The record is a 50-nucleotide sequence, which matches "Glutamine riboswitch aptamer (glnA leader)" in Rfam. Gene Ontology term of the family: glutamine binding.
RNA sequence: CACGUUCAUCCUAUCAAGGACGGAAGUAGCAUAACGCGAAGGAACGCACC
Numbered sequence: 001c002a003c004g005u006u007c008a009u010c011c012u013a014u015c016a017a018g019g020a021c022g023g024a025a026g027u028a029g030c031a032u033a034a035c036g037c038g039a040a041g042g043a044a045c046g047c048a049c050c
Stems, first nucleotide, its partner, number of pairs: 003046005009020004023047001029037002
Dot-bracket structure: ..(((((.((((....))))..[.....((.....))....)))))]...
Pairs were carried over by alignment from the consensus structure, which is taken from published work. For this family Rfam cites "Structural and Dynamic Basis for Low-Affinity, High-Selectivity Binding of L-Glutamine by the Glutamine Riboswitch" (Ren et al., Cell Rep, 2015).